[Rfam]
RNA sequence: CAAUGAAGGAAGCAUGAUAAUGUGCACAUAAAUUGAAUUGGGUCUCUAGGUCUGCCCUUUUUGAUGUCACUUGGUUUUGAUUUGGGGGUAUGGUUUUGCAGCAAAAUA
Numbered sequence: 001c002a003a004u005g006a007a008g009g010a011a012g013c014a015u016g017a018u019a020a021u022g023u024g025c026a027c028a029u030a031a032a033u034u035g036a037a038u039u040g041g042g043u044c045u046c047u048a049g050g051u052c053u054g055c056c057c058u059u060u061u062u063g064a065u066g067u068c069a070c071u072u073g074g075u076u077u078u079g080a081u082u083u084g085g086g087g088g089u090a091u092g093g094u095u096u097u098g099c100a101g102c103a104a105a106a107u108a
Stems, first nucleotide, its partner, number of pairs: 012025004040091001042089003050081003054075003
Small nucleolar RNA snoR100: a 108-nucleotide RNA from Rhododendron simsii. The family's consensus secondary structure was predicted with WAR. A search with the family's covariance model found it, with a score of 92 bits. Lineage of the source: Eukaryota > Gunneridae > Pentapetalae > Ericales > Rhododendron. For this family Rfam cites "Experimental RNomics: identification of 140 candidates for small non-messenger RNAs in the plant Arabidopsis thaliana" (Marker et al., Curr Biol, 2002).